[Rfam]
Nucleotides: 123
Stems, first nucleotide, its partner, number of pairs: 012114006022065002025062001028057002035050001037048003068103004074097004078092003
Number, partner (000 for none) and nucleotide at each position: 001000g002000u003000u004000a005000a006000a007000g008000c009000a010000g011000c012114g013113g014112c015111g016110u017109c018000a019000a020000a021000a022065g023064u024000g025062a026000a027000g028057g029056c030000u031000a032000a033000c034000u035050u036000g037048c038047u039046c040000u041000c042000c043000g044000u045000c046039g047038a048037g049000g050035a051000a052000g053000c054000a055000u056029g057028u058000a059000g060000c061000c062025u063000g064023a065022c066000g067000c068103c069102c070101c071100c072000g073000c074097a075096c076095u077094c078092a079091g080090c081000c082000a083000g084000a085000u086000c087000u088000a089000a090080g091079u092078u093000u094077g095076g096075g097074u098000u099000u100071g101070g102069g103068g104000c105000g106000a107000a108000g109017g110016a111015u112014g113013u114012c115000c116000g117000a118000a119000g120000c121000c122000a123000u

Shown here is a 123-nucleotide RNA, a member of the family "Hepatitis C virus J7880 RNA". Rfam classes the family as a cis-regulatory element.